About this RNA: The family of this 136-nucleotide sequence from Merluccius polli is "Small nucleolar RNA SNORA47". The base pairs follow the family's consensus structure, which was predicted with WAR. Gene Ontology terms of the family: RNA processing and nucleolus. It is annotated as an H/ACA-box small nucleolar RNA.
[Rfam]
Nucleotides: 136
Base pairs, nucleotide, nucleotide: 002059003058004057005056006055015046016045017044018043021039022038023037024036025035080128081127085124086123088121089120090119094115096113097112098111101110102109
Number, partner (000 for none) and nucleotide at each position: 001000a002059g003058g004057a005056g006055g007000a008000c009000u010000g011000a012000g013000a014000a015046g016045g017044u018043u019000a020000c021039g022038c023037a024036g025035c026000u027000u028000g029000u030000g031000u032000c033000g034000u035025g036024c037023u038022g039021u040000a041000a042000u043018a044017a045016c046015u047000g048000g049000u050000u051000u052000a053000c054000a055006c056005c057004u058003c059002c060000a061000a062000g063000a064000g065000u066000a067000a068000c069000u070000a071000a072000c073000a074000a075000a076000g077000c078000a079000c080128a081127a082000c083000a084000u085124g086123g087000u088121g089120g090119c091000u092000c093000u094115g095000u096113g097112u098111a099000a100000c101110g102109c103000c104000a105000c106000a107000a108000u109102g110101c111098u112097g113096c114000u115094c116000g117000a118000u119090g120089c121088u122000u123086u124085u125000g126000u127081u128080u129000u130000a131000c132000a133000u134000u135000g136000a
It scores 50 bits against the family's covariance model.